[Rfam]
RNA: ZMP/ZTP riboswitch aptamer (pfl RNA motif)
RNA sequence: GCCUCGGGCCGUGACUGGCGCGUGAAGGUGGGCUAACCAUCGGGGAGCGGCCUCGUCGAAUGACGACCUGCCGUGCGCCUGGGCCUCUGCA
Numbered sequence: 001g002c003c004u005c006g007g008g009c010c011g012u013g014a015c016u017g018g019c020g021c022g023u024g025a026a027g028g029u030g031g032g033c034u035a036a037c038c039a040u041c042g043g044g045g046a047g048c049g050g051c052c053u054c055g056u057c058g059a060a061u062g063a064c065g066a067c068c069u070g071c072c073g074u075g076c077g078c079c080u081g082g083g084c085c086u087c088u089g090c091a
Base pairs, nucleotide, nucleotide: 004055006053007052008051009050010049011048012047015044016043017079018078019077020076021075028040029039030038031037070084071083072082